[Rfam]
The record is a 333-nucleotide RNA sequence from Peptostreptococcus stomatis, which matches "Bacterial RNase P class A" in Rfam.
NCBI's taxonomy places the organism under Bacteria, Bacillota, Peptostreptococcaceae, Peptostreptococcus, Peptostreptococcus stomatis.
The base pairs follow the family's consensus structure, which is taken from published work.
The family's RNA type in Rfam is ribozyme.
Rfam's curators write: Ribonuclease P (RNase P) is a ubiquitous endoribonuclease, found in archaea, bacteria and eukarya as well as chloroplasts and mitochondria.
RNA sequence: CAAGUAUAGCAGGUGAUCGCAGGUAGAAAUACGUGAGGAAAGUCGGAGCUCCAUAGAGCAGGGUGCUAGGUAACGCCUAGUGAGAGCGAUCUUAAGGAUAGUGCAACAGAAAUAAACCGCCCUUAUAGGUAAGGAUGGAAAGGCGAGGUAAGAGCUCACCAGCAUAUAGGUGACUAUAUGGCUAUGUAAACCCCACCUGGUGCAAGGCCAAGAUAGGAAUAAGAGAUGUUGCUCGCAUCUCCCGGUAGGUAGGCCGCUUGAGCCUAUUGGUGACAAUAGGCCUAGAAAGAUGAUCAUCAAAUACAGAACUCCGCUUAUAGCUAUACUUAACAA
Numbered sequence: 001c002a003a004g005u006a007u008a009g010c011a012g013g014u015g016a017u018c019g020c021a022g023g024u025a026g027a028a029a030u031a032c033g034u035g036a037g038g039a040a041a042g043u044c045g046g047a048g049c050u051c052c053a054u055a056g057a058g059c060a061g062g063g064u065g066c067u068a069g070g071u072a073a074c075g076c077c078u079a080g081u082g083a084g085a086g087c088g089a090u091c092u093u094a095a096g097g098a099u100a101g102u103g104c105a106a107c108a109g110a111a112a113u114a115a116a117c118c119g120c121c122c123u124u125a126u127a128g129g130u131a132a133g134g135a136u137g138g139a140a141a142g143g144c145g146a147g148g149u150a151a152g153a154g155c156u157c158a159c160c161a162g163c164a165u166a167u168a169g170g171u172g173a174c175u176a177u178a179u180g181g182c183u184a185u186g187u188a189a190a191c192c193c194c195a196c197c198u199g200g201u202g203c204a205a206g207g208c209c210a211a212g213a214u215a216g217g218a219a220u221a222a223g224a225g226a227u228g229u230u231g232c233u234c235g236c237a238u239c240u241c242c243c244g245g246u247a248g249g250u251a252g253g254c255c256g257c258u259u260g261a262g263c264c265u266a267u268u269g270g271u272g273a274c275a276a277u278a279g280g281c282c283u284a285g286a287a288a289g290a291u292g293a294u295c296a297u298c299a300a301a302u303a304c305a306g307a308a309c310u311c312c313g314c315u316u317a318u319a320g321c322u323a324u325a326c327u328u329a330a331c332a333a
Base pairs, nucleotide, nucleotide: 002328003327004326005325006324007323008322009321010320011318012298013297014296015295016294017293018292020035021034023032024031025030040316041315042314044313045312046311047310048309049202051200052199056234057233058232059231061198062197063196064195065194066080067079068078069077070076081095082093083092084091085090096193097192101191102190103187104186105185117134118133119130120129121128142160143159145157146156147155162182163180164179165178166177167176168175169174206255207254208253209252213246214245216243217242225239226238227237228236229235262281263280264279265278266277267276268275269274